[Rfam]
Nucleotides: 325
Base pairs, nucleotide, nucleotide: 050183051182052181053180054179060178061177063175064174066171068169069168075162076161077160078159079158080157081156085101086100087099088098089097102143103142104141105140106139107138108137184199185198186197187196268282269281270280271279273298274297275296276295301320302319303318304317305316306315307314308313
Number, partner (000 for none) and nucleotide at each position: 001000g002000c003000c004000g005000g006000c007000a008000a009000a010000u011000c012000u013000u014000g015000u016000a017000a018000a019000a020000c021000c022000g023000g024000c025000c026000a027000c028000c029000c030000g031000c032000c033000c034000c035000c036000a037000u038000a039000a040000u041000u042000c043000g044000a045000u046000g047000c048000a049000u050183g051182g052181u053180u054179g055000u056000a057000a058000c059000u060178c061177c062000g063175g064174c065000g066171a067000g068169c069168u070000g071000g072000a073000g074000a075162c076161g077160u078159u079158c080157u081156g082000g083000a084000c085101a086100g087099g088098g089097g090000u091000u092000c093000g094000a095000c096000u097089c098088c099087c100086c101085u102143c103142a104141u105140c106139u107138c108137c109000a110000c111000c112000u113000a114000a115000g116000c117000g118000c119000a120000u121000c122000g123000c124000g125000g126000u127000g128000c129000g130000u131000u132000u133000a134000g135000a136000u137108g138107g139106g140105g141104g142103u143102g144000u145000a146000c147000c148000g149000g150000u151000u152000u153000c154000g155000a156081c157080a158079g159078g160077g161076c162075g163000g164000g165000u166000g167000a168069a169068g170000g171066u172000g173000a174064g175063c176000a177061g178060g179054c180053a181052a182051c183050u184199c185198g186197u187196c188000a189000g190000g191000c192000g193000a194000u195000c196187g197186a198185c199184g200000u201000u202000a203000a204000u205000g206000a207000a208000g209000c210000a211000a212000a213000u214000u215000c216000a217000u218000a219000a220000a221000u222000g223000c224000c225000a226000a227000u228000g229000a230000u231000g232000a233000g234000c235000a236000u237000u238000u239000c240000g241000c242000u243000a244000u245000u246000g247000c248000c249000g250000c251000c252000u253000a254000a255000a256000a257000a258000c259000g260000g261000c262000u263000a264000g265000c266000c267000g268282g269281g270280g271279c272000u273298g274297c275296u276295a277000g278000a279271g280270c281269c282268u283000u284000g285000u286000u287000a288000c289000c290000a291000a292000a293000g294000a295276u296275a297274g298273c299000c300000g301320g302319c303318g304317g305316g306315g307314a308313c309000u310000u311000c312000g313308g314307u315306c316305c317304c318303c319302g320301u321000c322000g323000u324000c325000a